[Rfam]
RNA sequence: ACUGUGGAGUGUACAAAAACCUGUGAGUAGCGUAUUGCCUGCAAUCGUCAAAACAUACACAAUGAAGCAGUAA
Numbered sequence: 001a002c003u004g005u006g007g008a009g010u011g012u013a014c015a016a017a018a019a020c021c022u023g024u025g026a027g028u029a030g031c032g033u034a035u036u037g038c039c040u041g042c043a044a045u046c047g048u049c050a051a052a053a054c055a056u057a058c059a060c061a062a063u064g065a066a067g068c069a070g071u072a073a
Base pairs, nucleotide, nucleotide: 001071002070003069004068005067009060010059011058012057013056022055023054024053030048031047032046035044036043
RNA: RAGATH-18 RNA